A member of the RNA family "Small nucleolar RNA snoR99" from Papaver somniferum, 107 nucleotides long. Its family is annotated with RNA processing and nucleolus in the Gene Ontology. By type it is an H/ACA-box small nucleolar RNA.
RNA sequence: GUGCCUAAGGAAUGAAUGGGUCCCUAAAAUUCAAAUUCAUCCAUCUGUUCACUUUGUCAGCUGUGUAUUUUCUUGUUACUUGUUGAUCAUUAAAUGAUGGAAAACUU
Number, nucleotide and partner (000 for none) at each position: 001g000002u000003g000004c000005c000006u000007a000008a000009g000010g000011a000012a000013u000014g000015a000016a000017u000018g000019g000020g000021u000022c000023c000024c000025u000026a000027a000028a000029a000030u000031u000032c000033a000034a000035a000036u000037u000038c000039a000040u101041c100042c099043a098044u097045c096046u000047g000048u000049u000050c000051a000052c000053u000054u000055u000056g087057u086058c085059a084060g083061c082062u000063g080064u000065g000066u000067a000068u000069u000070u000071u000072c000073u000074u000075g000076u000077u000078a000079c000080u063081u000082g061083u060084u059085g058086a057087u056088c000089a000090u000091u000092a000093a000094a000095u000096g045097a044098u043099g042100g041101a040102a000103a000104a000105c000106u000107u000